[Rfam]
RNA sequence: GGAUGAGUGAUGUUUUGAGGACUGUCCAACCUGAGAAUGCUUGAGCUGAGGUCAAUCUCAGGUUCGUCAGCCCAUGAAAUAUUGACUCGAC
Numbered sequence: 001g002g003a004u005g006a007g008u009g010a011u012g013u014u015u016u017g018a019g020g021a022c023u024g025u026c027c028a029a030c031c032u033g034a035g036a037a038u039g040c041u042u043g044a045g046c047u048g049a050g051g052u053c054a055a056u057c058u059c060a061g062g063u064u065c066g067u068c069a070g071c072c073c074a075u076g077a078a079a080u081a082u083u084g085a086c087u088c089g090a091c
Base pairs, nucleotide, nucleotide: 005088006087007086008084009083010082011081012080013079014078015077016076019073020072022070023069024068026066028064029063030062031061032060033059034058035057036056038054039053